c-di-GMP-I-GGC riboswitch aptamer: an 85-nucleotide sequence from Lysinibacillus telephonicus. Taxonomically the source falls in Lysinibacillus (Bacteria, Bacilli, Caryophanales, Bacillaceae). The match comes from Rfam's covariance-model search (69 bits).
[Rfam]
RNA sequence: UUUGAAAAAGGCAAAUCUAUCGAAAGGUAGAGACGCAAAGUCACAGAUCUUCCGUAAUUAUACAAAGAUGGCUGGGCUGCCAAAU
Number, nucleotide and partner (000 for none) at each position: 001u000002u000003u082004g081005a000006a000007a000008a000009a000010g000011g036012c035013a000014a000015a000016u031017c030018u029019a028020u027021c026022g000023a000024a000025a000026g021027g020028u019029a018030g017031a016032g000033a000034c071035g012036c011037a000038a000039a078040g077041u076042c075043a000044c074045a073046g072047a069048u068049c067050u066051u065052c000053c000054g000055u000056a000057a000058u000059u000060a000061u000062a000063c000064a000065a051066a050067g049068a048069u047070g000071g034072c046073u045074g044075g042076g041077c040078u039079g000080c000081c004082a003083a000084a000085u000